[Rfam]
Nucleotides: 072
Stems, first nucleotide, its partner, number of pairs: 001071002004068003008063010019052004023047002028042002031039002
Number, partner (000 for none) and nucleotide at each position: 001071u002070c003000u004068c005067c006066u007000c008063g009062a010061g011060g012059g013058g014057u015056c016055u017054c018000u019052g020051c021050c022049u023047c024046u025000a026000c027000c028042c029041a030000g031039g032038a033000c034000u035000c036000u037000u038032u039031c040000a041029u042028g043000a044000c045000c046024a047023g048000g049022a050021g051020g052019c053000u054017g055016a056015g057014g058013c059012c060011c061010c062009u063008c064000a065000c066006a067005g068004g069000c070002g071001g072000c
Rfam assigns this 72-nucleotide RNA sequence from Macaca mulatta to the family "mir-665 microRNA precursor family".
Rfam 15.1 lists 112 matches to the family in 112 species.